[Rfam]
RNA sequence: UAAACCCUUUGACUGCUCAAAAUGGGCGCCAUUGAAUGUUGGGCUGUGGAGGAAAAUUAACUUAUGCCUCGGUUUGAACGAAAAUGGUUAAACUUUAGGAGCAAACUGAAAGUACGUUGUUCCACCAUUGAGGCUAUAGGGUAUUAGGAUGGAACGUCUUCGUCAUGUCGCGGAGCGACGUGAUGUAUUUUCCCGC
Numbered sequence: 001u002a003a004a005c006c007c008u009u010u011g012a013c014u015g016c017u018c019a020a021a022a023u024g025g026g027c028g029c030c031a032u033u034g035a036a037u038g039u040u041g042g043g044c045u046g047u048g049g050a051g052g053a054a055a056a057u058u059a060a061c062u063u064a065u066g067c068c069u070c071g072g073u074u075u076g077a078a079c080g081a082a083a084a085u086g087g088u089u090a091a092a093c094u095u096u097a098g099g100a101g102c103a104a105a106c107u108g109a110a111a112g113u114a115c116g117u118u119g120u121u122c123c124a125c126c127a128u129u130g131a132g133g134c135u136a137u138a139g140g141g142u143a144u145u146a147g148g149a150u151g152g153a154a155c156g157u158c159u160u161c162g163u164c165a166u167g168u169c170g171c172g173g174a175g176c177g178a179c180g181u182g183a184u185g186u187a188u189u190u191u192c193c194c195g196c
Stems, first nucleotide, its partner, number of pairs: 009050002012047002015044006021033005051193007061140005066134005071094007079086001098123007105113003146160006161185011